[Rfam]
RNA sequence: ACCUUAUUAAGAGUGGUGGAGUGAAUGGGCACGAUGAAACCCGGCAACCUAAAAGGUGCUAAAUCCCACAGAGCUGCUCUGGAAGAUGAGGU
Numbered sequence: 001a002c003c004u005u006a007u008u009a010a011g012a013g014u015g016g017u018g019g020a021g022u023g024a025a026u027g028g029g030c031a032c033g034a035u036g037a038a039a040c041c042c043g044g045c046a047a048c049c050u051a052a053a054a055g056g057u058g059c060u061a062a063a064u065c066c067c068a069c070a071g072a073g074c075u076g077c078u079c080u081g082g083a084a085g086a087u088g089a090g091g092u
Base pairs, nucleotide, nucleotide: 001092002091003090004089005088006087007086008085013042015041016040017039021032022031023030026068027067028066029065043060044059045058046057048056049055064084069081070080071079072078073077
Background:
SAM riboswitch aptamer (S box leader): a 92-nucleotide sequence from Peptoniphilus sp. ING2-D1G. Lineage of the source: Bacteria > Bacillota > Tissierellales > Peptoniphilaceae > Peptoniphilus.